This 146-nucleotide RNA from Molossus molossus belongs to the Rfam family "Small nucleolar RNA SNORA67".
The family's RNA type in Rfam is H/ACA-box small nucleolar RNA.
From the family's description: U67 belongs to the H/ACA class of snoRNAs which are thought to guide the sites of modification of uridines to pseudouridines.
Rfam 15.1 lists 580 matches to the family in 130 species.

RNA sequence: UACCAAGGUGAUUCCCUCUCCAAGAGGCCUAAUAGUGCCCCUCUUCAGGAAAGUAGCAACUUGGUAUAAAAUCUGGCAUGCCUCAGGUUUUUCAGUGGAGAAGGUGAAUUGUCAUUGCCUUUGCCUUUCUUUGGCUGCCUACAUAU
Numbered sequence: 001u002a003c004c005a006a007g008g009u010g011a012u013u014c015c016c017u018c019u020c021c022a023a024g025a026g027g028c029c030u031a032a033u034a035g036u037g038c039c040c041c042u043c044u045u046c047a048g049g050a051a052a053g054u055a056g057c058a059a060c061u062u063g064g065u066a067u068a069a070a071a072u073c074u075g076g077c078a079u080g081c082c083u084c085a086g087g088u089u090u091u092u093c094a095g096u097g098g099a100g101a102a103g104g105u106g107a108a109u110u111g112u113c114a115u116u117g118c119c120u121u122u123g124c125c126u127u128u129c130u131u132u133g134g135c136u137g138c139c140u141a142c143a144u145a146u
Stems, first nucleotide, its partner, number of pairs: 002065006009058002019050003023042002026039003076136001079134001085128002094120002098116002